[Rfam]
RNA sequence: UCAUAACGCUAGGGGAGCGAAGGCUGAGAAUCGGCUGCCGGGAGGCAGCCGGGACCCUUAUUACUUGAUCCGGACAAUACCGGCGAAAGGAAGCAGCAACUUCUGCAG
Numbered sequence: 001u002c003a004u005a006a007c008g009c010u011a012g013g014g015g016a017g018c019g020a021a022g023g024c025u026g027a028g029a030a031u032c033g034g035c036u037g038c039c040g041g042g043a044g045g046c047a048g049c050c051g052g053g054a055c056c057c058u059u060a061u062u063a064c065u066u067g068a069u070c071c072g073g074a075c076a077a078u079a080c081c082g083g084c085g086a087a088a089g090g091a092a093g094c095a096g097c098a099a100c101u102u103c104u105g106c107a108g
Stems, first nucleotide, its partner, number of pairs: 008094003011058004017024002031052009064089003070083004